[Rfam]
RNA sequence: ACUACUGAGCCAUCUCUCCAGCCCCUGAUUUAAUUUUAUUAAGAAAUUGAGUUUGGGACUGGAGAGAUGGCUCAGAGGU
Numbered sequence: 001a002c003u004a005c006u007g008a009g010c011c012a013u014c015u016c017u018c019c020a021g022c023c024c025c026u027g028a029u030u031u032a033a034u035u036u037u038a039u040u041a042a043g044a045a046a047u048u049g050a051g052u053u054u055g056g057g058a059c060u061g062g063a064g065a066g067a068u069g070g071c072u073c074a075g076a077g078g079u
Stems, first nucleotide, its partner, number of pairs: 002078002005075017023057002

Shown here is a 79-nucleotide RNA from Mus spicilegus, a member of the family "mir-3473 microRNA precursor family". The base pairs follow the family's consensus structure, which was predicted with RNAalifold. The match comes from Rfam's covariance-model search (72 bits).